[Rfam]
RNA sequence: GGGCGAUUGGCUCAGUUGGUUAGAGCGAUGCUUUCACACGGCAUAGGUCACUGGUUCGAAUCCGGUAUCGCCCA
Numbered sequence: 001g002g003g004c005g006a007u008u009g010g011c012u013c014a015g016u017u018g019g020u021u022a023g024a025g026c027g028a029u030g031c032u033u034u035c036a037c038a039c040g041g042c043a044u045a046g047g048u049c050a051c052u053g054g055u056u057c058g059a060a061u062c063c064g065g066u067a068u069c070g071c072c073c074a
Stems, first nucleotide, its partner, number of pairs: 001073007010026004028044005050066005

tRNA: a 74-nucleotide RNA from Novipirellula galeiformis. Its family is annotated with triplet codon-amino acid adaptor activity in the Gene Ontology. It scores 67 bits against the family's covariance model.